About this RNA
The family of this 118-nucleotide RNA from Caldalkalibacillus thermarum is "Ribosomal protein L20 leader". Pairs were carried over by alignment from the consensus structure, which was predicted with CMfinder. The match comes from Rfam's covariance-model search (63 bits). From the family's description: This family is a putative r-protein leader autoregulatory structure found in B. subtilis and other low-GC Gram-positive bacteria. The family's RNA type in Rfam is cis-regulatory leader. A reference for the family is Zengel and Lindahl (1994), "Diverse mechanisms for regulating ribosomal protein synthesis in Escherichia coli", Prog Nucleic Acid Res Mol Biol.
RNA sequence: CACAACAAGCAGAAGCGACCCGCUUCUCACCUGUUCGACUGAAAUGUUGGCAGGUUCAUGAAUGAUAAGUGCUGAGGAGAUCAAUGCGGGCGACCUGUGCCCGCAUUUUUUGAUGGGU
Numbered sequence: 001c002a003c004a005a006c007a008a009g010c011a012g013a014a015g016c017g018a019c020c021c022g023c024u025u026c027u028c029a030c031c032u033g034u035u036c037g038a039c040u041g042a043a044a045u046g047u048u049g050g051c052a053g054g055u056u057c058a059u060g061a062a063u064g065a066u067a068a069g070u071g072c073u074g075a076g077g078a079g080a081u082c083a084a085u086g087c088g089g090g091c092g093a094c095c096u097g098u099g100c101c102c103g104c105a106u107u108u109u110u111u112g113a114u115g116g117g118u
Base pairs, nucleotide, nucleotide: 011027012026013025014024015023016022029055030054031053035050036049037048038047039046085105086104087103088102089101090100091099092098